[Rfam]
RNA sequence: UAAAUAUGAAUAUGCUUACCGUAGACAGUAGGUGCCGUGAGGCUUAAUUUCCUACCGAGGUGUUGUGAUAGAACGUCGCUGUACACAGCUGGGCUGUGUGCGGAUGAUCCAUCAAAGCCUUCGUGAUUCUGCGGAGGCUUUUUUCAAUGCCUUG
Numbered sequence: 001u002a003a004a005u006a007u008g009a010a011u012a013u014g015c016u017u018a019c020c021g022u023a024g025a026c027a028g029u030a031g032g033u034g035c036c037g038u039g040a041g042g043c044u045u046a047a048u049u050u051c052c053u054a055c056c057g058a059g060g061u062g063u064u065g066u067g068a069u070a071g072a073a074c075g076u077c078g079c080u081g082u083a084c085a086c087a088g089c090u091g092g093g094c095u096g097u098g099u100g101c102g103g104a105u106g107a108u109c110c111a112u113c114a115a116a117g118c119c120u121u122c123g124u125g126a127u128u129c130u131g132c133g134g135a136g137g138c139u140u141u142u143u144u145c146a147a148u149g150c151c152u153u154g
Stems, first nucleotide, its partner, number of pairs: 028055005034043003116139010

Rfam assigns this 154-nucleotide RNA sequence from Paenibacillus sp. oral taxon 786 to the family "Ribosomal protein L10 leader". Its family is annotated with regulation of gene expression in the Gene Ontology. The family's consensus secondary structure was predicted with CMfinder. For this family Rfam cites "Ribosomal protein L10(L12)4 autoregulates expression of the Bacillus subtilis rplJL operon by a transcription attenuation mechanism" (Yakhnin et al., Nucleic Acids Res, 2015). The match comes from Rfam's covariance-model search (80 bits).